[Rfam]
RNA sequence: UGGUAGAUGCACCCUGAUUGUUGCCCCUGGACCUCGUUUGCGAGGCCCAGGGUUUUUUUU
Numbered sequence: 001u002g003g004u005a006g007a008u009g010c011a012c013c014c015u016g017a018u019u020g021u022u023g024c025c026c027c028u029g030g031a032c033c034u035c036g037u038u039u040g041c042g043a044g045g046c047c048c049a050g051g052g053u054u055u056u057u058u059u060u
Stems, first nucleotide, its partner, number of pairs: 002013003025052006032045004
This 60-nucleotide RNA from Leptolyngbya iicbica belongs to the Rfam family "Nitrogen stress-induced RNA 1". The literature on the family includes a 2010 paper in J Mol Biol by Ionescu et al., "Heterocyst-specific transcription of NsiR1, a non-coding RNA encoded in a tandem array of direct repeats in cyanobacteria". Taxonomically the source falls in Leptolyngbya iicbica (Bacteria, Bacillati, Leptolyngbyaceae, Leptolyngbya). It is annotated as a small RNA.